Notes: Small nucleolar RNA SNORA22: a 131-nucleotide RNA sequence from Heliornis fulica. The family has 31 seed sequences and 883 matches in Rfam 15.1. Rfam classes the family as an H/ACA-box small nucleolar RNA.

RNA sequence: CUGCACAGUGAACACCCAAGUGUGCUUUGUAGUUCCCUUGGUUUUAAUUCUGUGCUAGAAUAAUUUGUACUUCCCUCUGCAUUGGAAGGAUUUGCAUUCCUUUUACAUGUAUUCAGAAGGACAAUACAUUU
Numbered sequence: 001c002u003g004c005a006c007a008g009u010g011a012a013c014a015c016c017c018a019a020g021u022g023u024g025c026u027u028u029g030u031a032g033u034u035c036c037c038u039u040g041g042u043u044u045u046a047a048u049u050c051u052g053u054g055c056u057a058g059a060a061u062a063a064u065u066u067g068u069a070c071u072u073c074c075c076u077c078u079g080c081a082u083u084g085g086a087a088g089g090a091u092u093u094g095c096a097u098u099c100c101u102u103u104u105a106c107a108u109g110u111a112u113u114c115a116g117a118a119g120g121a122c123a124a125u126a127c128a129u130u131u
Base pairs, nucleotide, nucleotide: 003055004054005053006052007051008050010049014045016041017040018039019038020037022035024033025032026031057071058070060068061067062066076117077116078115079114080109081108082107084104085103086102087101088100089099090098

Taxonomically the source falls in Heliornis (Eukaryota, Opisthokonta, Archelosauria, Theropoda). Gene Ontology terms of the family: nucleolus and RNA processing. Pairs were carried over by alignment from the consensus structure, which was predicted with RNAfold.